[Rfam]
RNA sequence: GUUGUCGGAUUCACCUCAAUCCACGUGUAUUGAAGUGGAUUGGAGUGGAAUUUAAUUUAAAUUCCACUCCAAUCCACUCCAACACAUAUGGAUUGAUGCGAAUCCGACU
Numbered sequence: 001g002u003u004g005u006c007g008g009a010u011u012c013a014c015c016u017c018a019a020u021c022c023a024c025g026u027g028u029a030u031u032g033a034a035g036u037g038g039a040u041u042g043g044a045g046u047g048g049a050a051u052u053u054a055a056u057u058u059a060a061a062u063u064c065c066a067c068u069c070c071a072a073u074c075c076a077c078u079c080c081a082a083c084a085c086a087u088a089u090g091g092a093u094u095g096a097u098g099c100g101a102a103u104c105c106g107a108c109u
Base pairs, nucleotide, nucleotide: 004108005107006106007105008104009103010102011101012100014098016096017095018094019093020092021091022090023089025087026086027085028084030082031081032080035077036076037075038074039073040072041071042070043069045067046066047065
Record summary: The family of this 109-nucleotide sequence from Sorghum bicolor is "MIR5565 microRNA precursor family". Rfam 15.1 lists 3,346 matches to the family in 5 species. Gene Ontology terms of the family: miRNA-mediated post-transcriptional gene silencing and RISC complex. NCBI's taxonomy places the organism under Eukaryota, Streptophytina, Liliopsida, Poaceae, Sorghum.